Overview
The family of this 130-nucleotide sequence from Escherichia coli is "RtT RNA". Rfam links the family to the GO term cellular response to amino acid starvation. By type it is a cis-regulatory element. It is one of the family's seed sequences. On this family, see Bosl and Kersten, Nucleic Acids Res 1991: "A novel RNA product of the tyrT operon of Escherichia coli".
RNA sequence: UUUGCACUCAUCGGGGAAGGGUGAGAACCUUCGACUAAGGUUCGAUUCGAGCGAAAGCGAGAGAGCGUUGCCACAGGCAACGGCCCGAAGGUGAGGAGCGAAGCGACGAAUAAUCCUUCCCCCACCACCA
Dot-bracket structure: .............(((((((.(.........((.(.....((((...((........))......((((((.....))))))...)))).)))...................).))))))).........
Numbered sequence: 001u002u003u004g005c006a007c008u009c010a011u012c013g014g015g016g017a018a019g020g021g022u023g024a025g026a027a028c029c030u031u032c033g034a035c036u037a038a039g040g041u042u043c044g045a046u047u048c049g050a051g052c053g054a055a056a057g058c059g060a061g062a063g064a065g066c067g068u069u070g071c072c073a074c075a076g077g078c079a080a081c082g083g084c085c086c087g088a089a090g091g092u093g094a095g096g097a098g099c100g101a102a103g104c105g106a107c108g109a110a111u112a113a114u115c116c117u118u119c120c121c122c123c124a125c126c127a128c129c130a
Stems, first nucleotide, its partner, number of pairs: 014121007022113001032093002035091001041089004048059002066082006
This family represents a bacterial cis-regulatory element known as RtT RNA. The exact function of RtT is unknown although it is thought that it may be involved in changing the cellular response in relation to amino acid starvation. Taxonomically the source falls in Escherichia (Bacteria, Pseudomonadati, Pseudomonadota, Gammaproteobacteria).